[Rfam]
RNA sequence: CGAGCUGGCAGGGCGGUCGCGUGACCCGGUCCCCUCGGGGAGCGGGUUUCGAGGAAAGUCCGGACUCCGCAGGGCAGGGUGGUUGCUAACGGCAACCCGGGGUGACCCGCGGGACAGUGCCACAGAAAACAGACCGCCCAGCCGUUCGCGGCUGGGUAAGGGUGAAACGGUGGUGUAAGAGACCACCAGCGUCCCGGGUGACCGGGACGGCUCGGUAAACCCCACCCGGAGCAAGGCCAAGAGGGAGCGCGAGCUCCUGCGCAGGCGAUCGAGGGCGGCCCGCCCGAUGCCUGCGGGUAGGCCGCUGGAGCCUGCCGGCGACGGCAGGCCGAGAUGGAUGGCCGCCCACCGCGGCCCCGGUCCGCCGGGGUCGUGGGGACAGGAUCCGGCUUACAUGCCAGCUCGUCCU
Numbered sequence: 001c002g003a004g005c006u007g008g009c010a011g012g013g014c015g016g017u018c019g020c021g022u023g024a025c026c027c028g029g030u031c032c033c034c035u036c037g038g039g040g041a042g043c044g045g046g047u048u049u050c051g052a053g054g055a056a057a058g059u060c061c062g063g064a065c066u067c068c069g070c071a072g073g074g075c076a077g078g079g080u081g082g083u084u085g086c087u088a089a090c091g092g093c094a095a096c097c098c099g100g101g102g103u104g105a106c107c108c109g110c111g112g113g114a115c116a117g118u119g120c121c122a123c124a125g126a127a128a129a130c131a132g133a134c135c136g137c138c139c140a141g142c143c144g145u146u147c148g149c150g151g152c153u154g155g156g157u158a159a160g161g162g163u164g165a166a167a168c169g170g171u172g173g174u175g176u177a178a179g180a181g182a183c184c185a186c187c188a189g190c191g192u193c194c195c196g197g198g199u200g201a202c203c204g205g206g207a208c209g210g211c212u213c214g215g216u217a218a219a220c221c222c223c224a225c226c227c228g229g230a231g232c233a234a235g236g237c238c239a240a241g242a243g244g245g246a247g248c249g250c251g252a253g254c255u256c257c258u259g260c261g262c263a264g265g266c267g268a269u270c271g272a273g274g275g276c277g278g279c280c281c282g283c284c285c286g287a288u289g290c291c292u293g294c295g296g297g298u299a300g301g302c303c304g305c306u307g308g309a310g311c312c313u314g315c316c317g318g319c320g321a322c323g324g325c326a327g328g329c330c331g332a333g334a335u336g337g338a339u340g341g342c343c344g345c346c347c348a349c350c351g352c353g354g355c356c357c358c359g360g361u362c363c364g365c366c367g368g369g370g371u372c373g374u375g376g377g378g379a380c381a382g383g384a385u386c387c388g389g390c391u392u393a394c395a396u397g398c399c400a401g402c403u404c405g406u407c408c409u
Stems, first nucleotide, its partner, number of pairs: 001405010011394001012346007020051002023048006056392003060389005065231004072281004077227005082096005097111001098109004112222002117220002119216003134161002136157009169187006189211001190209008235303004261294006273285004310329008

Overview: Bacterial RNase P class A: a 409-nucleotide RNA from Amycolatopsis sp. YIM 10. The base pairs follow the family's consensus structure, which is taken from published work. By type it is a ribozyme. Rfam describes the family as follows. Ribonuclease P (RNase P) is a ubiquitous endoribonuclease, found in archaea, bacteria and eukarya as well as chloroplasts and mitochondria. NCBI's taxonomy places the organism under Bacteria, Bacillati, Actinomycetota, Pseudonocardiaceae, Amycolatopsis.